[Rfam]
RNA sequence: UAGCCUCGGGACAAAGUUAAUGGGUCUUGAAGGUCCUGGAAAGUCCUCGGGCCAUCCACUGCAGAGAUGCGACACCUGAAAGGGUCAAACCCUUUGAGCUCCAAUUGGUUUCUCAUCACUUGGUGGGGGCAGAAACCAGAGUGGAGCCCCAUGAGAAUCUUGGCUCGAAGGAUCCAUGGCCGAGUCACAGUGAUUCACUUGGUCCAAUCUUUAUUGGAUCAACAGAAUGGGGCUGACAAUCCUAAGGCU
Numbered sequence: 001u002a003g004c005c006u007c008g009g010g011a012c013a014a015a016g017u018u019a020a021u022g023g024g025u026c027u028u029g030a031a032g033g034u035c036c037u038g039g040a041a042a043g044u045c046c047u048c049g050g051g052c053c054a055u056c057c058a059c060u061g062c063a064g065a066g067a068u069g070c071g072a073c074a075c076c077u078g079a080a081a082g083g084g085u086c087a088a089a090c091c092c093u094u095u096g097a098g099c100u101c102c103a104a105u106u107g108g109u110u111u112c113u114c115a116u117c118a119c120u121u122g123g124u125g126g127g128g129g130c131a132g133a134a135a136c137c138a139g140a141g142u143g144g145a146g147c148c149c150c151a152u153g154a155g156a157a158u159c160u161u162g163g164c165u166c167g168a169a170g171g172a173u174c175c176a177u178g179g180c181c182g183a184g185u186c187a188c189a190g191u192g193a194u195u196c197a198c199u200u201g202g203u204c205c206a207a208u209c210u211u212u213a214u215u216g217g218a219u220c221a222a223c224a225g226a227a228u229g230g231g232g233c234u235g236a237c238a239a240u241c242c243u244a245a246g247g248c249u
Stems, first nucleotide, its partner, number of pairs: 002249005008243004014200004019195001022037003026033002042234002045232004060071004074085004089173001091171007101163004110157007202219006
Dot-bracket structure: .(((((.((((..((((.(..(((.((....)).)))....[[.[[[[...........((((....))))..((((....))))...(.(((((((...((((.....(((((((..................................)))))))..)))).))))))).).....................).)))).((((((......)))))).........]]]]]].....)))).)))))